[Rfam]
RNA sequence: UAAAUACAUCAAGAGAAGGGCUGACGUCCUCGCCAACCUGCCAACCUGGGCAAGGUGGUUUGCUGUUAUUCCAGCGAUGUGGUCGAACCGACAAUAAAUCAGGUCGCC
Numbered sequence: 001u002a003a004a005u006a007c008a009u010c011a012a013g014a015g016a017a018g019g020g021c022u023g024a025c026g027u028c029c030u031c032g033c034c035a036a037c038c039u040g041c042c043a044a045c046c047u048g049g050g051c052a053a054g055g056u057g058g059u060u061u062g063c064u065g066u067u068a069u070u071c072c073a074g075c076g077a078u079g080u081g082g083u084c085g086a087a088c089c090g091a092c093a094a095u096a097a098a099u100c101a102g103g104u105c106g107c108c
Stems, first nucleotide, its partner, number of pairs: 006080005015031001017030005032059003037055003040051003044104005082092004